Rhizobiales sRNA Atu_L1: a 174-nucleotide sequence from Agrobacterium tumefaciens.
RNA sequence: CUUGCAGAAUGACCGCACAGAUGAGGGUCUGGAUGAAUGCCGUAUAGAAGGAGCCGUGGAUAAAAUAUGUCGCAACCGCAAAGGCAAGCAAUGCACCGAUCAUGCUGAAAAAAACACGAGGUGCAUACAUGGUGCUCUCCUCCCGAGAACGAUUUCUCCAUUUUUGACUGCGCU
Numbered sequence: 001c002u003u004g005c006a007g008a009a010u011g012a013c014c015g016c017a018c019a020g021a022u023g024a025g026g027g028u029c030u031g032g033a034u035g036a037a038u039g040c041c042g043u044a045u046a047g048a049a050g051g052a053g054c055c056g057u058g059g060a061u062a063a064a065a066u067a068u069g070u071c072g073c074a075a076c077c078g079c080a081a082a083g084g085c086a087a088g089c090a091a092u093g094c095a096c097c098g099a100u101c102a103u104g105c106u107g108a109a110a111a112a113a114a115c116a117c118g119a120g121g122u123g124c125a126u127a128c129a130u131g132g133u134g135c136u137c138u139c140c141u142c143c144c145g146a147g148a149a150c151g152a153u154u155u156c157u158c159c160a161u162u163u164u165u166g167a168c169u170g171c172g173c174u
Base pairs, nucleotide, nucleotide: 004171005170006169007168015096018093025055026054028052029051031041032040068080069079070078072076118142119141120140121139123135124134125133126132144166145165146164147163148162149161151159
The family's RNA type in Rfam is small RNA. NCBI's taxonomy places the organism under Bacteria, Pseudomonadati, Rhizobiaceae, Agrobacterium tumefaciens complex, Agrobacterium tumefaciens. A reference for the family is Wilms et al. (2012), "Deep sequencing uncovers numerous small RNAs on all four replicons of the plant pathogen Agrobacterium tumefaciens", RNA Biol.